Shown here is a 136-nucleotide sequence from Lentilactobacillus hilgardii, a member of the family "TPP riboswitch aptamer (THI element)". Rfam describes the family as follows. Vitamin B(1) in its active form thiamin pyrophosphate (TPP) is an essential coenzyme that is synthesised by coupling of pyrimidine and thiazole moieties in bacteria.

[Rfam]
RNA sequence: AUAUUUCGUCUGGGGUGCCUGAACGUGUCUAAGUAAAUGAUUAAGAUCAUUUAUUACCACGUUCGAAAGGCUGAGAUAAUACCCAUCGAACCUGAUGCAGUUUGUACUGUCGAAGGAAGAGCGAACCGGAAAAUUG
Numbered sequence: 001a002u003a004u005u006u007c008g009u010c011u012g013g014g015g016u017g018c019c020u021g022a023a024c025g026u027g028u029c030u031a032a033g034u035a036a037a038u039g040a041u042u043a044a045g046a047u048c049a050u051u052u053a054u055u056a057c058c059a060c061g062u063u064c065g066a067a068a069g070g071c072u073g074a075g076a077u078a079a080u081a082c083c084c085a086u087c088g089a090a091c092c093u094g095a096u097g098c099a100g101u102u103u104g105u106a107c108u109g110u111c112g113a114a115g116g117a118a119g120a121g122c123g124a125a126c127c128g129g130a131a132a133a134u135u136g
Stems, first nucleotide, its partner, number of pairs: 006124004011085004016079001017071004091116003097110004
The source organism's lineage runs through Bacteria, Bacillota, Lactobacillales, Lentilactobacillus and Lentilactobacillus hilgardii.